Rfam assigns this 263-nucleotide RNA from Oceanispirochaeta crateris to the family "T-box leader".
The family's RNA type in Rfam is cis-regulatory leader.
About the family: Uncharged tRNA acts as the effector for transcription antitermination of genes in the T-box leader family.
RNA sequence: UGAAAGGCAUAGACGGAGACGAGUAACUGUACCCCGGGUCAAGAGAGAAGCGGUUCAUAGGCUGGAAGGCCGCUGGCUCAAGAGCAGAGAAAACCCCUCCCGAGCUGCUUCCCGAAAGGACCUCCCCUGUAGUGAGGAGGAAUCCGAUUAGAUGAAGACGAAAUCCCGCGUUAAGGGAGAGCUGAGAGCGCCUUGUGCAGACACACUGGCAAAGGCGAAAUAAGGUGGUACCGCGGAGAGCCCUUUUGUUCUUCGUCCUUAUA
Numbered sequence: 001u002g003a004a005a006g007g008c009a010u011a012g013a014c015g016g017a018g019a020c021g022a023g024u025a026a027c028u029g030u031a032c033c034c035c036g037g038g039u040c041a042a043g044a045g046a047g048a049a050g051c052g053g054u055u056c057a058u059a060g061g062c063u064g065g066a067a068g069g070c071c072g073c074u075g076g077c078u079c080a081a082g083a084g085c086a087g088a089g090a091a092a093a094c095c096c097c098u099c100c101c102g103a104g105c106u107g108c109u110u111c112c113c114g115a116a117a118g119g120a121c122c123u124c125c126c127c128u129g130u131a132g133u134g135a136g137g138a139g140g141a142a143u144c145c146g147a148u149u150a151g152a153u154g155a156a157g158a159c160g161a162a163a164u165c166c167c168g169c170g171u172u173a174a175g176g177g178a179g180a181g182c183u184g185a186g187a188g189c190g191c192c193u194u195g196u197g198c199a200g201a202c203a204c205a206c207u208g209g210c211a212a213a214g215g216c217g218a219a220a221u222a223a224g225g226u227g228g229u230a231c232c233g234c235g236g237a238g239a240g241c242c243c244u245u246u247u248g249u250u251c252u253u254c255g256u257c258c259u260u261a262u263a
Stems, first nucleotide, its partner, number of pairs: 007105002015100004027087004038077003049074006108157004159170002189217006222260004233256009